[Rfam]
RNA sequence: AUAUGAUAAAGGCAAACCCAAGGAAAUUUGGGGACGCAAAGCCACGGGCCUUAAGGUAAUAUCAACCAAGGUAGCCGGGUUACCAAA
Numbered sequence: 001a002u003a004u005g006a007u008a009a010a011g012g013c014a015a016a017c018c019c020a021a022g023g024a025a026a027u028u029u030g031g032g033g034a035c036g037c038a039a040a041g042c043c044a045c046g047g048g049c050c051u052u053a054a055g056g057u058a059a060u061a062u063c064a065a066c067c068a069a070g071g072u073a074g075c076c077g078g079g080u081u082a083c084c085a086a087a
Base pairs, nucleotide, nucleotide: 012037013036017032018031019030020029021028022027040081041080042079043078045077046076047075048072049071050070055066057064
RNA: c-di-GMP-I riboswitch aptamer
Organism: Petrocella atlantisensis